[Rfam]
RNA sequence: CAGAGUAGGGUAGAUGCGUGUACAUUAGUCUACAGUGUCUGAGGACGGGGACGUGACCUCGGAACGAAUGGCGAAAGCCUACGAUAUUUUACCCGUCGUCCGCUGC
Numbered sequence: 001c002a003g004a005g006u007a008g009g010g011u012a013g014a015u016g017c018g019u020g021u022a023c024a025u026u027a028g029u030c031u032a033c034a035g036u037g038u039c040u041g042a043g044g045a046c047g048g049g050g051a052c053g054u055g056a057c058c059u060c061g062g063a064a065c066g067a068a069u070g071g072c073g074a075a076a077g078c079c080u081a082c083g084a085u086a087u088u089u090u091a092c093c094c095g096u097c098g099u100c101c102g103c104u105g106c
Base pairs, nucleotide, nucleotide: 001105002104003103008094009093010092011091012090013089014087015086016085017083018082019081035065036064038063039062040061041060042059043058044057049100050099053096070079071078072077

Shown here is a 106-nucleotide sequence, a member of the family "THF (Tetrahydrofolate) riboswitch aptamer". It is one of the family's seed sequences. The literature on the family includes a 2010 paper in Chem Biol by Ames et al., "A eubacterial riboswitch class that senses the coenzyme tetrahydrofolate".